[Rfam]
Shown here is a 65-nucleotide sequence from Oceanobacillus iheyensis, a member of the family "Bacillaceae-1 RNA". The base pairs follow the family's consensus structure, which is taken from published work.

RNA sequence: UUUUAAGGAAAGCCGACUAAGAACGCCUCGUCCUGUGCCAACGUCGAUAUGACCCGGAUUCCGGG
Numbered sequence: 001u002u003u004u005a006a007g008g009a010a011a012g013c014c015g016a017c018u019a020a021g022a023a024c025g026c027c028u029c030g031u032c033c034u035g036u037g038c039c040a041a042c043g044u045c046g047a048u049a050u051g052a053c054c055c056g057g058a059u060u061c062c063g064g065g
Base pairs, nucleotide, nucleotide: 012048014046015045016044017043025039027037029035053065054064055063056062057061
Dot-bracket structure: ...........(.((((.......(.(.(.....).).)...)))).)....(((((...)))))